[Rfam]
RNA sequence: GGGUCUAUAAUGACAAACCAACGUCAUUAUGAGAGGUGAUGACAUAAAUAUCAUGCUGUGGCUGGGGCUGCUGAGACCA
Number, nucleotide and partner (000 for none) at each position: 001g000002g078003g077004u076005c073006u000007a000008u070009a069010a000011u000012g000013a000014c000015a000016a000017a000018c000019c000020a000021a000022c000023g000024u000025c000026a000027u000028u000029a000030u000031g000032a000033g000034a000035g000036g000037u000038g000039a000040u000041g000042a000043c000044a000045u000046a000047a000048a000049u000050a000051u000052c000053a000054u000055g000056c000057u000058g000059u000060g000061g000062c000063u000064g000065g000066g000067g000068c000069u009070g008071c000072u000073g005074a000075g000076a004077c003078c002079a000